Annotation: U1 spliceosomal RNA: a 161-nucleotide RNA from Cynara cardunculus. From the family's description: U1 is a small nuclear RNA (snRNA) component of the spliceosome (involved in pre-mRNA splicing). Its 5' end forms complementary base pairs with the 5' splice junction, thus defining the 5' donor site of an intron. The literature on the family includes a 2009 paper in Nature by Pomeranz Krummel et al., "Crystal structure of human spliceosomal U1 snRNP at 5.5 A resolution".

RNA sequence: UCACUUACCUGGAUGGGAUGAAUGGGUGAUCAAUAAAGCUCAUGGUCUAGGUUUGUGACCUUCAUUGCACUUUGGAGGGGUGCUUGCCUAAGGUCGGCCCAAGUGGUCGAACCUACAUCAUAAUUUGUGACAGCGGGGGCCUGCGUUCGCGCGGCCCCUAU
Numbered sequence: 001u002c003a004c005u006u007a008c009c010u011g012g013a014u015g016g017g018a019u020g021a022a023u024g025g026g027u028g029a030u031c032a033a034u035a036a037a038g039c040u041c042a043u044g045g046u047c048u049a050g051g052u053u054u055g056u057g058a059c060c061u062u063c064a065u066u067g068c069a070c071u072u073u074g075g076a077g078g079g080g081u082g083c084u085u086g087c088c089u090a091a092g093g094u095c096g097g098c099c100c101a102a103g104u105g106g107u108c109g110a111a112c113c114u115a116c117a118u119c120a121u122a123a124u125u126u127g128u129g130a131c132a133g134c135g136g137g138g139g140c141c142u143g144c145g146u147u148c149g150c151g152c153g154g155c156c157c158c159u160a161u
Base pairs, nucleotide, nucleotide: 012119013118014117015116016048017047018046019045021043023042024041025040026039027038049089050088051087053086055083056082057081059079060078061077062075063074091114092113093112094110095109096108098106099105135159136158137157138156142153143152144151145150
Background: NCBI's taxonomy places the organism under Eukaryota, Mesangiospermae, Asterales, Cynara, Cynara cardunculus subsp. cardunculus.